[Rfam]
MIR6217 microRNA precursor family: a 220-nucleotide RNA from Sorghum bicolor. The base pairs follow the family's consensus structure, which was predicted with RNAalifold. The source organism's lineage runs through Eukaryota, Viridiplantae, Mesangiospermae, Liliopsida and Sorghum. Its family is annotated with RISC complex and miRNA-mediated post-transcriptional gene silencing in the Gene Ontology.
Nucleotides: 220
Stems, first nucleotide, its partner, number of pairs: 001209002005207001007205003011201001013199001015197006021188001025184011038170013053157003057153001059151001060149003069134003075130006081120011095105002
Number, partner (000 for none) and nucleotide at each position: 001209u002208a003000a004000c005207u006000a007205u008204u009203a010000c011201u012000c013199u014000a015197u016196a017195g018194c019193u020192g021188u022000g023000a024000g025184u026183u027182a028181c029180g030179a031178u032177a033176a034175u035174u036000a037000c038170u039169a040168u041167a042166u043165u044164a045163a046162u047161u048160u049159a050158c051000a052000a053157g054156a055155u056000u057153a058000g059151a060149g061148u062147a063000a064000c065000u066000c067000c068000u069134u070133a071132c072000u073000a074000g075130g076129u077128g078127g079126u080125u081120u082119a083118c084117u085116a086115u087114a088113a089112u090111a091110u092000u093000a094000c095105g096104g097000u098000a099000a100000a101000u102000a103000u104096c105095c106000c107000c108000a109000u110091a111090u112089g113088u114087u115086a116085u117084a118083g119082u120081a121000a122000c123000c124000c125080a126079a127078c128077u129076a130075u131000c132071g133070u134069a135000c136000a137000u138000a139000u140000a141000u142000a143000u144000a145000u146000a147062u148061a149060c150000a151059u152000a153057u154000u155055a156054u157053c158050g159049u160048a161047a162046a163045u164044u165043a166042g167041u168040a169039u170038a171000u172000a173000a174035a175034a176033u177032u178031a179030u180029c181028g182027u183026a184025a185000a186000u187000g188021g189000a190000g191000a192020u193019g194018g195017c196016u197015a198000c199013a200000u201011a202000a203009u204008a205007a206000c207005a208002u209001a210000u211000u212000u213000u214000g215000u216000a217000g218000c219000u220000a